The record is a 208-nucleotide RNA sequence, which matches "Bradyrhizobiaceae sRNA BjrC174" in Rfam. A reference for the family is Madhugiri et al. (2012), "Small RNAs of the Bradyrhizobium/Rhodopseudomonas lineage and their analysis", RNA Biol. The pairing is the family consensus, mapped onto this sequence. A search with the family's covariance model found it, with a score of 56 bits. It is annotated as a small RNA.
RNA sequence: AUCCUGUGAUCGAUUUCAUAAUGCCGCCCCAUUUCGGUCUUCGCCGCGCCAGCAUGCCUGCCUACACAGAACCAUUCUGGCGUGUGGCCCGGUUUUUCAGGCGACGGAUCCUCAGCCCCCAGCCCCUCCGAAACCUGUCAAGCCGGGCCUGCCAGCUGAAAUCGCGAACGACGGAAUCGCAAACGGGUCGGCGAAUGCCGGCUUUUUU
Numbered sequence: 001a002u003c004c005u006g007u008g009a010u011c012g013a014u015u016u017c018a019u020a021a022u023g024c025c026g027c028c029c030c031a032u033u034u035c036g037g038u039c040u041u042c043g044c045c046g047c048g049c050c051a052g053c054a055u056g057c058c059u060g061c062c063u064a065c066a067c068a069g070a071a072c073c074a075u076u077c078u079g080g081c082g083u084g085u086g087g088c089c090c091g092g093u094u095u096u097u098c099a100g101g102c103g104a105c106g107g108a109u110c111c112u113c114a115g116c117c118c119c120c121a122g123c124c125c126c127u128c129c130g131a132a133a134c135c136u137g138u139c140a141a142g143c144c145g146g147g148c149c150u151g152c153c154a155g156c157u158g159a160a161a162u163c164g165c166g167a168a169c170g171a172c173g174g175a176a177u178c179g180c181a182a183a184c185g186g187g188u189c190g191g192c193g194a195a196u197g198c199c200g201g202c203u204u205u206u207u208u
Stems, first nucleotide, its partner, number of pairs: 029174002035043001078167001080165003086149010099136003105130003115123002185204008